[Rfam]
This 371-nucleotide RNA from Cutibacterium acnes belongs to the Rfam family "transfer-messenger RNA". Clan: tRNA clan. About the family: Bacterial tmRNA, also known as 10Sa RNA or SsrA, is named for its dual tRNA and mRNA-like properties. Its role is to liberate the mRNA from a stalled ribosome. To accomplish this part of the tmRNA is used as a reading frame that ends in a translation stop signal. The broken mRNA is replaced in the ribosome by the tmRNA and translation of the tmRNA leads to addition of a proteolysis tag to the incomplete protein enabling recognition by a protease. Rfam classes the family as a non-coding RNA gene.
RNA sequence: GGGGAUGACUGGUUUCGACUUGGAAUGGUUGUUCCAGGAGAAGCGGGCCGAGGACCCAGGGUCAACUCGUUAACGAUCCUUGGAAACCUAUAAGUGCCGAGAACACUCGCACUGACUUCGCUCUCGCUGCCUGAUCAGUGAUCGAAGGGUCAGCCCGGAUGUAGCCUUCCGUCCGGAUCCUGGCCUCGUUUAGAAGGCUUGCCGUACAGCUGUGGUCACGGGGGCUGUACGGGACGUUUCCGUGACUGGGCUUGUCUGCACCAUGUCGGUGUGAGUGCAGGAGCCGAGCAAUAACGACAGCAUCGACUGCGCCCGGAGAAUGUCUGGACGGUCUUUCAAGGACGCGGGUUCAAUUCCCGCCAUCUCCACUA
Numbered sequence: 001g002g003g004g005a006u007g008a009c010u011g012g013u014u015u016c017g018a019c020u021u022g023g024a025a026u027g028g029u030u031g032u033u034c035c036a037g038g039a040g041a042a043g044c045g046g047g048c049c050g051a052g053g054a055c056c057c058a059g060g061g062u063c064a065a066c067u068c069g070u071u072a073a074c075g076a077u078c079c080u081u082g083g084a085a086a087c088c089u090a091u092a093a094g095u096g097c098c099g100a101g102a103a104c105a106c107u108c109g110c111a112c113u114g115a116c117u118u119c120g121c122u123c124u125c126g127c128u129g130c131c132u133g134a135u136c137a138g139u140g141a142u143c144g145a146a147g148g149g150u151c152a153g154c155c156c157g158g159a160u161g162u163a164g165c166c167u168u169c170c171g172u173c174c175g176g177a178u179c180c181u182g183g184c185c186u187c188g189u190u191u192a193g194a195a196g197g198c199u200u201g202c203c204g205u206a207c208a209g210c211u212g213u214g215g216u217c218a219c220g221g222g223g224g225c226u227g228u229a230c231g232g233g234a235c236g237u238u239u240c241c242g243u244g245a246c247u248g249g250g251c252u253u254g255u256c257u258g259c260a261c262c263a264u265g266u267c268g269g270u271g272u273g274a275g276u277g278c279a280g281g282a283g284c285c286g287a288g289c290a291a292u293a294a295c296g297a298c299a300g301c302a303u304c305g306a307c308u309g310c311g312c313c314c315g316g317a318g319a320a321u322g323u324c325u326g327g328a329c330g331g332u333c334u335u336u337c338a339a340g341g342a343c344g345c346g347g348g349u350u351c352a353a354u355u356c357c358c359g360c361c362a363u364c365u366c367c368a369c370u371a
Base pairs, nucleotide, nucleotide: 001367002366003365004364005363006362007361019340020339021338022337023336024335025334027332033328034327035326036325037324038323040321044315045314046313047312048311049069050068051067052066056083057082058081059080060079121144124141125140126139127138149184150183151182152181153180155176156175157174158173164198165197166196167195168194169193203231204230205229206228207227208226209225210224211223214247215246216245217244218243219242249285250284251283252282253281260276261275265307266306267305268304271301272300344360345359346358347357348356